[Rfam]
RNA: nadA riboswitch
RNA sequence: AGCUUCAACAUCCCCGUAGGUCGGGCCCGCCGUGGCGGGUAGUGGAUCUACUGGAGCA
Numbered sequence: 001a002g003c004u005u006c007a008a009c010a011u012c013c014c015c016g017u018a019g020g021u022c023g024g025g026c027c028c029g030c031c032g033u034g035g036c037g038g039g040u041a042g043u044g045g046a047u048c049u050a051c052u053g054g055a056g057c058a
Stems, first nucleotide, its partner, number of pairs: 002057006013044001014042001016051007023043001025040006